[Rfam]
RNA sequence: CUGUGCAGGGAUCGCCACCCGUCAGCGCGUUGCGCCCACGGGUGCCUUUCCG
Numbered sequence: 001c002u003g004u005g006c007a008g009g010g011a012u013c014g015c016c017a018c019c020c021g022u023c024a025g026c027g028c029g030u031u032g033c034g035c036c037c038a039c040g041g042g043u044g045c046c047u048u049u050c051c052g
Stems, first nucleotide, its partner, number of pairs: 016044007025035004